[Rfam]
RNA sequence: AGAGGGAUGUAGCAGCACAGGUAAAAGUGGAUAGGUACCUGCCAGACAUCUGACUCUCCAGGUACCUCUCCACUUUUGCCUGUGCUGCUACAUCCCCCU
Numbered sequence: 001a002g003a004g005g006g007a008u009g010u011a012g013c014a015g016c017a018c019a020g021g022u023a024a025a026a027g028u029g030g031a032u033a034g035g036u037a038c039c040u041g042c043c044a045g046a047c048a049u050c051u052g053a054c055u056c057u058c059c060a061g062g063u064a065c066c067u068c069u070c071c072a073c074u075u076u077u078g079c080c081u082g083u084g085c086u087g088c089u090a091c092a093u094c095c096c097c098c099u
Stems, first nucleotide, its partner, number of pairs: 001099002005095003010092001011089008021079001023077008
Overview: This 99-nucleotide RNA from Alligator mississippiensis belongs to the Rfam family "mir-16 microRNA precursor family". Rfam 15.1 lists 4,705 matches to the family in 758 species. The literature on the family includes a 2002 paper in Proc Natl Acad Sci U S A by Calin et al., "Frequent deletions and down-regulation of micro- RNA genes miR15 and miR16 at 13q14 in chronic lymphocytic leukemia". The base pairs follow the family's consensus structure, which was predicted with PFOLD.